[Rfam]
RNA sequence: UUCAUAAAUCUGAACCCUUUCAAUACAAACUAUUGAAAAUUGACUAGCUAAUCUUCUGUAAUGCUAUUAUGAGGAUUGCCCUUUGAGGUUUAUAGCAAUAGGUCACCCUAUGGUUGGUCACAUGCAUUUAUGGA
Numbered sequence: 001u002u003c004a005u006a007a008a009u010c011u012g013a014a015c016c017c018u019u020u021c022a023a024u025a026c027a028a029a030c031u032a033u034u035g036a037a038a039a040u041u042g043a044c045u046a047g048c049u050a051a052u053c054u055u056c057u058g059u060a061a062u063g064c065u066a067u068u069a070u071g072a073g074g075a076u077u078g079c080c081c082u083u084u085g086a087g088g089u090u091u092a093u094a095g096c097a098a099u100a101g102g103u104c105a106c107c108c109u110a111u112g113g114u115u116g117g118u119c120a121c122a123u124g125c126a127u128u129u130a131u132g133g134a
Stems, first nucleotide, its partner, number of pairs: 001134009018039003021035005042119007050077007063096005098111005